Shown here is a 147-nucleotide sequence from Roseobacter sp. AzwK-3b, a member of the family "FMN riboswitch aptamer (RFN element)". Lineage of the source: Bacteria > Pseudomonadota > Alphaproteobacteria > Roseobacteraceae > Roseobacter. The RFN element is a highly conserved domain that is found frequently in the 5'-untranslated regions of prokaryotic mRNAs that encode for flavin mononucleotide (FMN) biosynthesis and transport proteins. Gene Ontology term of the family: FMN binding.

RNA sequence: GAGCGUUCUCAGGGCGGGGUGGAACUCCCCACCGGCGGUAAGCAUCUGUAUUGUGCAAGCCCGCGAGCGCCUCUCUUAUGAGGGGGUCAAGCAGAUCAGGUGAAAUUCCUGAGCCGACGGUUAAAGUCCGGAUGGAAGAGAACGUGC
Numbered sequence: 001g002a003g004c005g006u007u008c009u010c011a012g013g014g015c016g017g018g019g020u021g022g023a024a025c026u027c028c029c030c031a032c033c034g035g036c037g038g039u040a041a042g043c044a045u046c047u048g049u050a051u052u053g054u055g056c057a058a059g060c061c062c063g064c065g066a067g068c069g070c071c072u073c074u075c076u077u078a079u080g081a082g083g084g085g086g087u088c089a090a091g092c093a094g095a096u097c098a099g100g101u102g103a104a105a106u107u108c109c110u111g112a113g114c115c116g117a118c119g120g121u122u123a124a125a126g127u128c129c130g131g132a133u134g135g136a137a138g139a140g141a142a143c144g145u146g147c
Base pairs, nucleotide, nucleotide: 003145004144005143006142007141008140009139010138017029018028019027031127032126033116034115035064036063037062038061059114060113067092068091096112097111098110099109100108118130119129120128